[Rfam]
RNA sequence: CGACAGUCCGUUCCGUUUCGGGAAAUCCGGCAGGAUCGGCGCGAACGUCCUGCCGGGUGAACCGGUCGUGCGGUUCGGGCGGCUGCUACGGACAGCGGCCGCUUAC
Dot-bracket structure: ........((..((((.((((.....((((((((((..........)))))))))).....))))....))))..)).((((((((........))))))))....
RNA: Termite-flg RNA